[Rfam]
The record is a 114-nucleotide RNA sequence from Glycine soja, which matches "MIR1520 microRNA precursor family" in Rfam. Rfam 15.1 lists 1,934 matches to the family in 15 species. Rfam links the family to the GO terms miRNA-mediated post-transcriptional gene silencing and RISC complex. Taxonomically the source falls in Glycine subgen. Soja (Eukaryota, Viridiplantae, Euphyllophyta, Papilionoideae). Clan: MIR1520 microRNA precursor clan. A search with the family's covariance model found it, with a score of 82 bits.
RNA sequence: UUCUUAUUAGAUGAUGACUGUCACAUGUUUUAAUUGGUCAAUAACAACAAUAAUGUAUUUUAUCUUUCAUGAAGUUAACAUUCAAUCAAAACAUGACAGCGAUAAUUAUUAUCU
Numbered sequence: 001u002u003c004u005u006a007u008u009a010g011a012u013g014a015u016g017a018c019u020g021u022c023a024c025a026u027g028u029u030u031u032a033a034u035u036g037g038u039c040a041a042u043a044a045c046a047a048c049a050a051u052a053a054u055g056u057a058u059u060u061u062a063u064c065u066u067u068c069a070u071g072a073a074g075u076u077a078a079c080a081u082u083c084a085a086u087c088a089a090a091a092c093a094u095g096a097c098a099g100c101g102a103u104a105a106u107u108a109u110u111a112u113c114u
Stems, first nucleotide, its partner, number of pairs: 020103003024095003028091004033086005